[Rfam]
RNA sequence: AGAGGUCUCAAUUUUGAGGCCAAAGCAGAAGCGUUCAUGGCAUAGCCUGUCAGAUUUGAUGAAUCUGUAAAUUUUGCU
Numbered sequence: 001a002g003a004g005g006u007c008u009c010a011a012u013u014u015u016g017a018g019g020c021c022a023a024a025g026c027a028g029a030a031g032c033g034u035u036c037a038u039g040g041c042a043u044a045g046c047c048u049g050u051c052a053g054a055u056u057u058g059a060u061g062a063a064u065c066u067g068u069a070a071a072u073u074u075u076g077c078u
Stems, first nucleotide, its partner, number of pairs: 018047003024078007031043001033041001051067007

Background
Shown here is a 78-nucleotide sequence from Alligator mississippiensis, a member of the family "Mammalian CPEB3 ribozyme". The mammalian CPEB3 ribozyme is a self cleaving RNA located in the second intron of the CPEB3 gene which belongs to a family of genes regulating messenger RNA polyadenylation. Lineage of the source: Eukaryota > Sarcopterygii > Tetrapoda > Crocodylia > Alligator. Rfam links the family to the GO term RNA nuclease activity. The family's consensus secondary structure is taken from published work.